[Rfam]
RNA sequence: GCGUCCGCCCCGUGGGACACCUUCACGGCCCGCGGGGCGCCCCCGCUAGGCUGACCCGGUGCGCCGUCCUGCCGGGGGGCGCAAAGCCGACAGCCGUCGCAUCCCAGGGAGCACUUUCCAUG
Numbered sequence: 001g002c003g004u005c006c007g008c009c010c011c012g013u014g015g016g017a018c019a020c021c022u023u024c025a026c027g028g029c030c031c032g033c034g035g036g037g038c039g040c041c042c043c044c045g046c047u048a049g050g051c052u053g054a055c056c057c058g059g060u061g062c063g064c065c066g067u068c069c070u071g072c073c074g075g076g077g078g079g080c081g082c083a084a085a086g087c088c089g090a091c092a093g094c095c096g097u098c099g100c101a102u103c104c105c106a107g108g109g110a111g112c113a114c115u116u117u118c119c120a121u122g
Base pairs, nucleotide, nucleotide: 060083061082062081063080065078067076068075086100087099089098090097091096